[Rfam]
RNA sequence: GGGGUGUGCUCAGAGCACAGGGCCUGAAGAAAUGGCUUCUCUGUUUACAACAAACCCAAGAGGAAUCUGGGUUAAUUGUGACAAGAGGCACAAAACUUGUGGCCUUCCUGUGAACAAAUACCCAACACGU
Numbered sequence: 001g002g003g004g005u006g007u008g009c010u011c012a013g014a015g016c017a018c019a020g021g022g023c024c025u026g027a028a029g030a031a032a033u034g035g036c037u038u039c040u041c042u043g044u045u046u047a048c049a050a051c052a053a054a055c056c057c058a059a060g061a062g063g064a065a066u067c068u069g070g071g072u073u074a075a076u077u078g079u080g081a082c083a084a085g086a087g088g089c090a091c092a093a094a095a096c097u098u099g100u101g102g103c104c105u106u107c108c109u110g111u112g113a114a115c116a117a118a119u120a121c122c123c124a125a126c127a128c129g130u
Stems, first nucleotide, its partner, number of pairs: 002057004007052002013046005019040003022036003070123002073120001077116003082112002085105001087103001089101005